[Rfam]
The family of this 74-nucleotide RNA from Paludibacter propionicigenes is "Bacteroidetes FopS (family of paralogous sRNAs)". Rfam 15.1 lists 822 matches to the family in 178 species. The RNA-binding protein RbpB and BTncRNA_FopS sRNA are involved in the post-transcription regulation of polysaccharide utilisation loci (PUL). Rfam classes the family as a small RNA. Rfam's curators put it in the seed alignment. Gene Ontology term of the family: sRNA-mediated gene silencing. A reference for the family is Ruttiger et al. (2025), "The global RNA-binding protein RbpB is a regulator of polysaccharide utilization in Bacteroides thetaiotaomicron", Nat Commun. The base pairs follow the family's consensus structure, which is taken from published work.

RNA sequence: GUGUUUUUCAUGGUAUUAGAUUUAAGGUUAACUAAAAGAUUGGGUUGUCGUGAGACAACCUUUCUUGUUUUAUA
Numbered sequence: 001g002u003g004u005u006u007u008u009c010a011u012g013g014u015a016u017u018a019g020a021u022u023u024a025a026g027g028u029u030a031a032c033u034a035a036a037a038g039a040u041u042g043g044g045u046u047g048u049c050g051u052g053a054g055a056c057a058a059c060c061u062u063u064c065u066u067g068u069u070u071u072a073u074a
Stems, first nucleotide, its partner, number of pairs: 043060007